The family of this 587-nucleotide part of an RNA from an uncultured bacterium is "Bacterial large subunit ribosomal RNA". The family's consensus secondary structure is taken from published work.
RNA sequence: CCCGCACUUGGACGAAAAGACCCCGGAACCUUUACUGCAAUCUGAUAUUGAACUUGAGCUCUGUUUGUGUAGGAUAGCUGGGAGCCUUUGAAGUCCCUGCGCUAGCAGGGAUGGAGGCAACGGUGAAAUACCAGCCUAACGGUGUUUAGGUUCUAACUAUGACCUGUGAAGCCAGGCAUAAAACAGUGUCAGAUGGGCAGUUUGUUUGGGGCGAAUCCCGUCUAAAGAGUAACGACGGGGUCCUAAGGUCAUCUCAAACCGGUCGGCAAUCGGUUGUGGAGUGCAUAGGCAUAAGAUGGCUUAACUGUGACUUCGACAGAAGGAACAGAUACGAAAGUAGGGCUAAGUGAUCCGGUGGUAGAUUAUGGGAUUGCCAUCGCUCAACGGAUAAUAGGUACUCUGGGGAUAACAGGCUGAUCGCGCUCGAGAGUUCAUAUCGACAGCGCGGAUUGGCACCUCGAUGUCGGCUCGUCGUAUCCUGGGGCUGUACAAGGUCCCAAGGGUCCGGCUGUUCGCCGGUUAAAACGGCACGUGAGCUGGGUUUAGAACGUCGUGAGACAGUUCGGUCUCUAUCCAGUGUGGGCGCA
Numbered sequence: 001c002c003c004g005c006a007c008u009u010g011g012a013c014g015a016a017a018a019g020a021c022c023c024c025g026g027a028a029c030c031u032u033u034a035c036u037g038c039a040a041u042c043u044g045a046u047a048u049u050g051a052a053c054u055u056g057a058g059c060u061c062u063g064u065u066u067g068u069g070u071a072g073g074a075u076a077g078c079u080g081g082g083a084g085c086c087u088u089u090g091a092a093g094u095c096c097c098u099g100c101g102c103u104a105g106c107a108g109g110g111a112u113g114g115a116g117g118c119a120a121c122g123g124u125g126a127a128a129u130a131c132c133a134g135c136c137u138a139a140c141g142g143u144g145u146u147u148a149g150g151u152u153c154u155a156a157c158u159a160u161g162a163c164c165u166g167u168g169a170a171g172c173c174a175g176g177c178a179u180a181a182a183a184c185a186g187u188g189u190c191a192g193a194u195g196g197g198c199a200g201u202u203u204g205u206u207u208g209g210g211g212c213g214a215a216u217c218c219c220g221u222c223u224a225a226a227g228a229g230u231a232a233c234g235a236c237g238g239g240g241u242c243c244u245a246a247g248g249u250c251a252u253c254u255c256a257a258a259c260c261g262g263u264c265g266g267c268a269a270u271c272g273g274u275u276g277u278g279g280a281g282u283g284c285a286u287a288g289g290c291a292u293a294a295g296a297u298g299g300c301u302u303a304a305c306u307g308u309g310a311c312u313u314c315g316a317c318a319g320a321a322g323g324a325a326c327a328g329a330u331a332c333g334a335a336a337g338u339a340g341g342g343c344u345a346a347g348u349g350a351u352c353c354g355g356u357g358g359u360a361g362a363u364u365a366u367g368g369g370a371u372u373g374c375c376a377u378c379g380c381u382c383a384a385c386g387g388a389u390a391a392u393a394g395g396u397a398c399u400c401u402g403g404g405g406a407u408a409a410c411a412g413g414c415u416g417a418u419c420g421c422g423c424u425c426g427a428g429a430g431u432u433c434a435u436a437u438c439g440a441c442a443g444c445g446c447g448g449a450u451u452g453g454c455a456c457c458u459c460g461a462u463g464u465c466g467g468c469u470c471g472u473c474g475u476a477u478c479c480u481g482g483g484g485c486u487g488u489a490c491a492a493g494g495u496c497c498c499a500a501g502g503g504u505c506c507g508g509c510u511g512u513u514c515g516c517c518g519g520u521u522a523a524a525a526c527g528g529c530a531c532g533u534g535a536g537c538u539g540g541g542u543u544u545a546g547a548a549c550g551u552c553g554u555g556a557g558a559c560a561g562u563u564c565g566g567u568c569u570c571u572a573u574c575c576a577g578u579g580u581g582g583g584c585g586c587a
Base pairs, nucleotide, nucleotide: 001583002582003581004580005579006578007577008576010575011574012573014570015569022404023403024402025401026400027399028396029395030394031393034201035200036199037198041193042192043191044190045189046188047187050153051152052151053150054149055148056147057146058145059144061142062141063140064139065138067136077135078134079133080132081131084118085117086116093112094111095110096109097108098107099106100105158180159179163176164175165174166173204216205215206214207213217239218238219237220236221235222234240385242342243341248300249299250298251297252296253295254280255279257275258274259273260272261271262270281290282289305328306327307326308325311322312321313320330339331338332337353379354378355377356376357375358374359373361372362371413454414453415452417451418448419447420446421445422444423443424442428438429437465540466538467537468536469535470532471529472528473527474526475525478503479502481498482497483496484495485494486493505519506518507517508516509515546564547563548562549561550559551558552557